[Rfam]
RNA: Small nucleolar RNA SNORA11
RNA sequence: GGGGUGUGCUCAGAGCAGGGGGCCUGAAGAAAUGGCUUUUCUGUUCCCAACACACCCAACAGGAGUCUGGGUUCAUCAUGAUGAGGGGCACAAACUGUCGGGCCUUCCUAUGAACACAUACCCUCCACGC
Dot-bracket structure: .(((((((....((((((((((((.........))).)))))))))....)))))))............((.(.....(..((.(((.(..(.....)..).))).....)).).....).)).......